[Rfam]
RNA sequence: GGAUGUUACGAUGAGGAUACAAAGCUCCCUCUUCUGAUAUAAAAGCUGAGGAAACUCUGCAGGCAGAAUCGAACCAAAUUAUACUUCAUGCCUUCUGAGUAA
Numbered sequence: 001g002g003a004u005g006u007u008a009c010g011a012u013g014a015g016g017a018u019a020c021a022a023a024g025c026u027c028c029c030u031c032u033u034c035u036g037a038u039a040u041a042a043a044a045g046c047u048g049a050g051g052a053a054a055c056u057c058u059g060c061a062g063g064c065a066g067a068a069u070c071g072a073a074c075c076a077a078a079u080u081a082u083a084c085u086u087c088a089u090g091c092c093u094u095c096u097g098a099g100u101a102a
Base pairs, nucleotide, nucleotide: 006102007101008100009099
A member of the RNA family "Small nucleolar RNA R30/Z108" from Centaurea solstitialis, 102 nucleotides long. From the family's description: snoR30 is a C/D box small nucleolar RNA which acts as a methylation guide for 18S ribosomal RNA in plants. Pairs were carried over by alignment from the consensus structure, which was predicted with PFOLD. It is annotated as a C/D-box small nucleolar RNA. The family is grouped with related families in Rfam's "SNORD100 clan". On this family, see Marker et al., Curr Biol 2002: "Experimental RNomics. Identification of 140 Candidates for Small Non-Messenger RNAs in the Plant Arabidopsis thaliana".